Shown here is a 113-nucleotide sequence from Caenorhabditis nigoni, a member of the family "SL2 RNA". Rfam 15.1 lists 598 matches to the family in 38 species. For this family Rfam cites "Trans-spliced leader RNA, 5S-rRNA genes and novel variant orphan spliced-leader of the lymphatic filarial nematode Wuchereria bancrofti, and a sensitive polymerase chain reaction based detection assay" (Dassanayake et al., Gene, 2001). By type it is a non-coding RNA gene. This family represents SL2 RNA. SL2 RNA is involved in trans splicing in lower eukaryotes. Trans-splicing is a form of RNA processing.
RNA sequence: GGUUUUAACCCAGUUAACCAAGGUUAGCAUGGAUUUCGACCUUUCGAAAGAGAGUGUUGAAUAUUACUGUAAUUUUUGGACACCGCUUCUUCGGGGUUAUCCGUUGAGGCAAA
Numbered sequence: 001g002g003u004u005u006u007a008a009c010c011c012a013g014u015u016a017a018c019c020a021a022g023g024u025u026a027g028c029a030u031g032g033a034u035u036u037c038g039a040c041c042u043u044u045c046g047a048a049a050g051a052g053a054g055u056g057u058u059g060a061a062u063a064u065u066a067c068u069g070u071a072a073u074u075u076u077u078g079g080a081c082a083c084c085g086c087u088u089c090u091u092c093g094g095g096g097u098u099a100u101c102c103g104u105u106g107a108g109g110c111a112a113a
Stems, first nucleotide, its partner, number of pairs: 007035002009032002013028002016025003037059004041054005087111001089109006095102002
The match comes from Rfam's covariance-model search (104 bits).